[Rfam]
RNA sequence: AGCUUUGCACAGUGGCAGUAUAUCGUAGCCAAUGAGGUUUAUCCGAGGCAUGAUUGUUGCUAACUAAAAUUAUUUUAACCUCCAAAAAACCCGAAUUUCCUGUCUUCAAUAGCAUAGCAUUUCUGUAAUAGAAGAAUAAGAUGUUAU
Numbered sequence: 001a002g003c004u005u006u007g008c009a010c011a012g013u014g015g016c017a018g019u020a021u022a023u024c025g026u027a028g029c030c031a032a033u034g035a036g037g038u039u040u041a042u043c044c045g046a047g048g049c050a051u052g053a054u055u056g057u058u059g060c061u062a063a064c065u066a067a068a069a070u071u072a073u074u075u076u077a078a079c080c081u082c083c084a085a086a087a088a089a090c091c092c093g094a095a096u097u098u099c100c101u102g103u104c105u106u107c108a109a110u111a112g113c114a115u116a117g118c119a120u121u122u123c124u125g126u127a128a129u130a131g132a133a134g135a136a137u138a139a140g141a142u143g144u145u146a147u
Stems, first nucleotide, its partner, number of pairs: 022054005028049003036044002093123003096119001098117001101114003136147004
About this RNA: Shown here is a 147-nucleotide RNA from Propithecus coquereli, a member of the family "U4 spliceosomal RNA". Lineage of the source: Eukaryota > Dipnotetrapodomorpha > Lemuriformes > Indriidae > Propithecus. By type it is a spliceosomal small nuclear RNA. The base pairs follow the family's consensus structure, which is taken from published work.